[Rfam]
RNA sequence: UUCUUAUCAAGAGCGACUGAGGGACCAGGCCCAAUGACGUCCAGCAACCCCCUAUAUGGAACGGUGCUAAUUCCUGCAGAUACGUAUGUAUCUGAAAGAUAAGAU
Number, nucleotide and partner (000 for none) at each position: 001u000002u104003c103004u102005u101006a100007u099008c098009a000010a000011g000012a000013g042014c000015g041016a040017c039018u000019g000020a000021g032022g031023g030024a000025c000026c076027a075028g074029g073030c023031c022032c021033a000034a000035u000036g000037a000038c000039g017040u016041c015042c013043a068044g067045c066046a065047a000048c064049c063050c000051c059052c058053u000054a000055u000056a000057u000058g052059g051060a000061a000062c000063g049064g048065u046066g045067c044068u043069a000070a000071u000072u097073c029074c028075u027076g026077c094078a093079g092080a091081u090082a089083c000084g000085u000086a000087u000088g000089u082090a081091u080092c079093u078094g077095a000096a000097a072098g008099a007100u006101a005102a004103g003104a002105u000

The family of this 105-nucleotide RNA sequence from Heyndrickxia sporothermodurans is "SAM riboswitch aptamer (S box leader)". Pairs were carried over by alignment from the consensus structure, which is taken from published work. The literature on the family includes a 2010 paper in J Mol Biol by Montange et al., "Discrimination between closely related cellular metabolites by the SAM-I riboswitch". Its family is annotated with regulation of gene expression in the Gene Ontology. A search with the family's covariance model found it, with a score of 88 bits. NCBI's taxonomy places the organism under Bacteria, Bacillati, Bacilli, Caryophanales, Heyndrickxia.